[Rfam]
RNA sequence: GCUGCGCCGGACCUCCGGGUCCGGUGAGGAUCGCAAC
Numbered sequence: 001g002c003u004g005c006g007c008c009g010g011a012c013c014u015c016c017g018g019g020u021c022c023g024g025u026g027a028g029g030a031u032c033g034c035a036a037c
Stems, first nucleotide, its partner, number of pairs: 005026009
RNA: CRISPR RNA direct repeat element
Organism: Micromonospora sp. Llam0